This 265-nucleotide RNA from Paenibacillus methanolicus belongs to the Rfam family "Bacterial large signal recognition particle RNA". It scores 202 bits against the family's covariance model.
[Rfam]
RNA sequence: CCGUGCUAGAUGGGGAGUUAGCGGUGCCCUGUAACUCGCAAUCCGCUUUAGCGAGGUUGAAUUCCUGCCCGAGGUUAUGUCGAUGUGGGGCUGGUCUUUACGAACAGUGUUGACGGAUGGGUCCUCCGCAAUGGACGCUUGUGAACGGGUCAGGUCCGGAAGGAAGCAGCCAUAAGCAAGUUAGUUCAUGUGCCGGAGGGGUGCCUGUCCCGAGCUGGGAGUAAAGUUGCCGCCCGGAUCGCAUGUAUCGAAGGCAGGUGCACGG
Numbered sequence: 001c002c003g004u005g006c007u008a009g010a011u012g013g014g015g016a017g018u019u020a021g022c023g024g025u026g027c028c029c030u031g032u033a034a035c036u037c038g039c040a041a042u043c044c045g046c047u048u049u050a051g052c053g054a055g056g057u058u059g060a061a062u063u064c065c066u067g068c069c070c071g072a073g074g075u076u077a078u079g080u081c082g083a084u085g086u087g088g089g090g091c092u093g094g095u096c097u098u099u100a101c102g103a104a105c106a107g108u109g110u111u112g113a114c115g116g117a118u119g120g121g122u123c124c125u126c127c128g129c130a131a132u133g134g135a136c137g138c139u140u141g142u143g144a145a146c147g148g149g150u151c152a153g154g155u156c157c158g159g160a161a162g163g164a165a166g167c168a169g170c171c172a173u174a175a176g177c178a179a180g181u182u183a184g185u186u187c188a189u190g191u192g193c194c195g196g197a198g199g200g201g202u203g204c205c206u207g208u209c210c211c212g213a214g215c216u217g218g219g220a221g222u223a224a225a226g227u228u229g230c231c232g233c234c235c236g237g238a239u240c241g242c243a244u245g246u247a248u249c250g251a252a253g254g255c256a257g258g259u260g261c262a263c264g265g
Stems, first nucleotide, its partner, number of pairs: 001265006009058003012030004017025003035055005064258006073249003081241004086236004093231002096226006105218001106216003115210008123199006129190002132188005137181006148171003155164003
Rfam describes the family as follows. The signal recognition particle (SRP) is a universally conserved ribonucleoprotein involved in the co-translational targeting of proteins to membranes. The source organism's lineage runs through Bacteria, Bacillati, Bacilli, Caryophanales and Paenibacillus.